[Rfam]
RNA: Small nucleolar RNA SNORD24
Organism: Adiantum capillus-veneris
RNA sequence: GGCUUGUGAUGCAUAAAUCUGAUGAUAUUUGCUACUCUUGACGGCCUACUUGGCCGCUUGAUGAUUGUUUUAUCCACCAAGAUCUGUGAGGCC
Number, nucleotide and partner (000 for none) at each position: 001g093002g092003c091004u090005u000006g000007u000008g000009a000010u000011g000012c000013a000014u000015a000016a000017a000018u000019c000020u000021g000022a000023u000024g000025a000026u000027a000028u000029u000030u000031g000032c000033u000034a000035c000036u000037c000038u000039u000040g000041a000042c000043g000044g000045c000046c000047u000048a000049c000050u000051u000052g000053g000054c000055c000056g000057c000058u000059u000060g000061a000062u000063g000064a000065u000066u000067g000068u000069u000070u000071u000072a000073u000074c000075c000076a000077c000078c000079a000080a000081g000082a000083u000084c000085u000086g000087u000088g000089a000090g004091g003092c002093c001